[Rfam]
RNA sequence: GGACAUAAACGCGCAUGUAAUAAGCGGAUCGGACCCGGGGGCGGUACCCGGCGGCUCCACCAAAAUCACCUUCAUUGGGGUGCAUGGGGCCGAAAUAGGAUCGACGGACGUCUAAAGAUGUUGCUUUGUCUCGGUGAGGUACCACCGUUAUCGGUCCGGAAAAGUACAAUUGCCAAUGACAAUCGUGCUCCGGUCGCCGUUGCUGCGUAA
Numbered sequence: 001g002g003a004c005a006u007a008a009a010c011g012c013g014c015a016u017g018u019a020a021u022a023a024g025c026g027g028a029u030c031g032g033a034c035c036c037g038g039g040g041g042c043g044g045u046a047c048c049c050g051g052c053g054g055c056u057c058c059a060c061c062a063a064a065a066u067c068a069c070c071u072u073c074a075u076u077g078g079g080g081u082g083c084a085u086g087g088g089g090c091c092g093a094a095a096u097a098g099g100a101u102c103g104a105c106g107g108a109c110g111u112c113u114a115a116a117g118a119u120g121u122u123g124c125u126u127u128g129u130c131u132c133g134g135u136g137a138g139g140u141a142c143c144a145c146c147g148u149u150a151u152c153g154g155u156c157c158g159g160a161a162a163a164g165u166a167c168a169a170u171u172g173c174c175a176a177u178g179a180c181a182a183u184c185g186u187g188c189u190c191c192g193g194u195c196g197c198c199g200u201u202g203c204u205g206c207g208u209a210a
Stems, first nucleotide, its partner, number of pairs: 001131005013121004025110002029107003035051005052092007132147004